Shown here is an 87-nucleotide sequence from Jatropha curcas, a member of the family "MIR2275 microRNA precursor family". It scores 63 bits against the family's covariance model. The organism belongs to Jatropha, within Eukaryota. Its family is annotated with RISC complex and miRNA-mediated post-transcriptional gene silencing in the Gene Ontology.

[Rfam]
RNA sequence: CUCUUGAAAGUAAGAAUUGGAGGAACUCAAAUAACUUGUAUCAAAAUACAUAUUAUUUGGUUUCCUCCAAUGUCUUACCUUCAAUGG
Numbered sequence: 001c002u003c004u005u006g007a008a009a010g011u012a013a014g015a016a017u018u019g020g021a022g023g024a025a026c027u028c029a030a031a032u033a034a035c036u037u038g039u040a041u042c043a044a045a046a047u048a049c050a051u052a053u054u055a056u057u058u059g060g061u062u063u064c065c066u067c068c069a070a071u072g073u074c075u076u077a078c079c080u081u082c083a084a085u086g087g
Stems, first nucleotide, its partner, number of pairs: 004084005011077004016071006023064003027060004032055002